[Rfam]
The family of this 93-nucleotide RNA sequence from Polaromonas naphthalenivorans is "SAH (S-adenosyl-L-homocysteine) riboswitch aptamer". Taxonomically the source falls in Polaromonas naphthalenivorans (Bacteria, Pseudomonadati, Burkholderiales, Polaromonas). The match comes from Rfam's covariance-model search (53 bits).
RNA sequence: UAACUCAAGGAGCGUUGCAGCAAAACAUCCGUUUUGUCAGGCUUGGGUAAACAGGGCCGCAUCAUCCCCUUUUAGCAACGACGCUCACCUUUA
Numbered sequence: 001u002a003a004c005u006c007a008a009g010g011a012g013c014g015u016u017g018c019a020g021c022a023a024a025a026c027a028u029c030c031g032u033u034u035u036g037u038c039a040g041g042c043u044u045g046g047g048u049a050a051a052c053a054g055g056g057c058c059g060c061a062u063c064a065u066c067c068c069c070u071u072u073u074a075g076c077a078a079c080g081a082c083g084c085u086c087a088c089c090u091u092u093a
Base pairs, nucleotide, nucleotide: 003048004047005046006045007044008043021036022035023034024033025032026031